Rfam assigns this 53-nucleotide RNA to the family "Mu-gpT-DE RNA". The family's RNA type in Rfam is small RNA.
RNA sequence: UCCUGACAGCCGCAUAGUGUGGCUGACUUGACCCACGACAUGAGAUACACAUG
Numbered sequence: 001u002c003c004u005g006a007c008a009g010c011c012g013c014a015u016a017g018u019g020u021g022g023c024u025g026a027c028u029u030g031a032c033c034c035a036c037g038a039c040a041u042g043a044g045a046u047a048c049a050c051a052u053g
Stems, first nucleotide, its partner, number of pairs: 002042001004040002007025005
The base pairs follow the family's consensus structure, which is taken from published work. It is one of the family's seed sequences.